mir-1175 microRNA precursor family: a 73-nucleotide RNA from Darwinula stevensoni.

RNA sequence: AGGACUAAGUGGAGGAAUUGUCUCUGUCACUUUUAUUUAUGAAAGUGAGAUUCUACUCCUCCAACUUGUUGCU
Numbered sequence: 001a002g003g004a005c006u007a008a009g010u011g012g013a014g015g016a017a018u019u020g021u022c023u024c025u026g027u028c029a030c031u032u033u034u035a036u037u038u039a040u041g042a043a044a045g046u047g048a049g050a051u052u053c054u055a056c057u058c059c060u061c062c063a064a065c066u067u068g069u070u071g072c073u
Stems, first nucleotide, its partner, number of pairs: 007067003010063005017057001018055001023050002027048006
Description: The match comes from Rfam's covariance-model search (62 bits). Taxonomically the source falls in Darwinula (Eukaryota, Bilateria, Protostomia, Podocopida). Gene Ontology terms of the family: miRNA-mediated post-transcriptional gene silencing and RISC complex. The base pairs follow the family's consensus structure, which was predicted with RNAalifold.